[Rfam]
RNA sequence: AUAAUGAGACUUCCGUAAUUCGCGGCCCGGCUACAAUGAAAGCGGGGAGAUGAAAUUUCUAUGG
Numbered sequence: 001a002u003a004a005u006g007a008g009a010c011u012u013c014c015g016u017a018a019u020u021c022g023c024g025g026c027c028c029g030g031c032u033a034c035a036a037u038g039a040a041a042g043c044g045g046g047g048a049g050a051u052g053a054a055a056u057u058u059c060u061a062u063g064g
Base pairs, nucleotide, nucleotide: 012061013025014024015023016022026047027046028045030043031042032041048060049059050058

A member of the RNA family "pemK RNA" from Eubacterium sp. 14-2, 64 nucleotides long. Pairs were carried over by alignment from the consensus structure, which is taken from published work. Rfam classes the family as a cis-regulatory element. NCBI's taxonomy places the organism under Bacteria, Bacillota, Eubacteriales, Eubacteriaceae, Eubacterium.